[Rfam]
RNA sequence: UUUGCUGAGCCAGGCCCCCCACUUAGUGUAUUUGACAAGCUGAGUUGGACACUGUGUAUCAAUGAGUGUCAGUUUGUCAAAUACCCCAAGUGAGGUGUUACUUAUC
Numbered sequence: 001u002u003u004g005c006u007g008a009g010c011c012a013g014g015c016c017c018c019c020c021a022c023u024u025a026g027u028g029u030a031u032u033u034g035a036c037a038a039g040c041u042g043a044g045u046u047g048g049a050c051a052c053u054g055u056g057u058a059u060c061a062a063u064g065a066g067u068g069u070c071a072g073u074u075u076g077u078c079a080a081a082u083a084c085c086c087c088a089a090g091u092g093a094g095g096u097g098u099u100a101c102u103u104a105u106c
Base pairs, nucleotide, nucleotide: 020092021091022090023089026086028084029083030082031081032080033079034078035077036076037075038074039073040072041071048070049069050068051067053065
The record is a 106-nucleotide sequence from Neogobius melanostomus, which matches "mir-223 microRNA precursor family" in Rfam. The literature on the family includes a 2003 paper in Science by Lim et al., "Vertebrate microRNA genes". Taxonomically the source falls in Neogobius (Eukaryota, Actinopterygii, Actinopteri, Osteoglossocephalai). Pairs were carried over by alignment from the consensus structure, which was predicted with RNAalifold.